[Rfam]
RNA sequence: GCUGUGGUUUAGGUAGUUUCAUGUUGUUGGGAUGAGCUUUUAGCUCGGCAACAAGAAACUGCCUGAGCUACGUC
Numbered sequence: 001g002c003u004g005u006g007g008u009u010u011a012g013g014u015a016g017u018u019u020c021a022u023g024u025u026g027u028u029g030g031g032a033u034g035a036g037c038u039u040u041u042a043g044c045u046c047g048g049c050a051a052c053a054a055g056a057a058a059c060u061g062c063c064u065g066a067g068c069u070a071c072g073u074c
Stems, first nucleotide, its partner, number of pairs: 003072017022053010

A member of the RNA family "mir-196 microRNA precursor family" from Catharus ustulatus, 74 nucleotides long. The literature on the family includes a 2003 paper in RNA by Lagos-Quintana et al., "New microRNAs from mouse and human". Taxonomically the source falls in Catharus (Eukaryota, Sauria, Coelurosauria, Passeriformes). The family has 84 seed sequences and 1,813 matches in Rfam 15.1. The family's consensus secondary structure was predicted with PFOLD.